[Rfam]
RNA sequence: AAUUAAUAUGGCGAUGACGUUCGCCUAUACUCGUUUAAUAAAAGAGUUGAUGACGUCUACCUUUAU
Numbered sequence: 001a002a003u004u005a006a007u008a009u010g011g012c013g014a015u016g017a018c019g020u021u022c023g024c025c026u027a028u029a030c031u032c033g034u035u036u037a038a039u040a041a042a043a044g045a046g047u048u049g050a051u052g053a054c055g056u057c058u059a060c061c062u063u064u065a066u
Stems, first nucleotide, its partner, number of pairs: 010025004016057006029047004
RNA: Fluoride riboswitch aptamer (crcB RNA motif)
Organism: Lentilactobacillus hilgardii